RNA sequence: CCACUAUUGACGAAUGGUGGUAGCAAAACUUGGUCUGAAGAACCAGUAGACAUACUCCGGAGUGUGUCUAUGACUUAAAGGCUAUAUCAAAGAGUUGAAACCUGUAUC
Numbered sequence: 001c002c003a004c005u006a007u008u009g010a011c012g013a014a015u016g017g018u019g020g021u022a023g024c025a026a027a028a029c030u031u032g033g034u035c036u037g038a039a040g041a042a043c044c045a046g047u048a049g050a051c052a053u054a055c056u057c058c059g060g061a062g063u064g065u066g067u068c069u070a071u072g073a074c075u076u077a078a079a080g081g082c083u084a085u086a087u088c089a090a091a092g093a094g095u096u097g098a099a100a101c102c103u104g105u106a107u108c
Stems, first nucleotide, its partner, number of pairs: 001020001003018006021084004031045004046071011
Rfam assigns this 108-nucleotide sequence to the family "RAGATH-34 RNA". The sequence is in the family's curated seed alignment. It is annotated as a small RNA.